[Rfam]
RNA: TPP riboswitch aptamer (THI element)
RNA sequence: AGUCAACCCACGGGGUGUCCUGGCGCAGUCAGGGCUGAGACGCGGAUCGGGCGCAGGGGGCGUCUAGGCCGCGGACCCGAGAACCUGAUCCGGUUCACACCGGCGGAGGAAUAGGGACCAUGAAGCGUU
Numbered sequence: 001a002g003u004c005a006a007c008c009c010a011c012g013g014g015g016u017g018u019c020c021u022g023g024c025g026c027a028g029u030c031a032g033g034g035c036u037g038a039g040a041c042g043c044g045g046a047u048c049g050g051g052c053g054c055a056g057g058g059g060g061c062g063u064c065u066a067g068g069c070c071g072c073g074g075a076c077c078c079g080a081g082a083a084c085c086u087g088a089u090c091c092g093g094u095u096c097a098c099a100c101c102g103g104c105g106g107a108g109g110a111a112u113a114g115g116g117a118c119c120a121u122g123a124a125g126c127g128u129u
Stems, first nucleotide, its partner, number of pairs: 007116003011079004016073001017035007042072004084109003090103004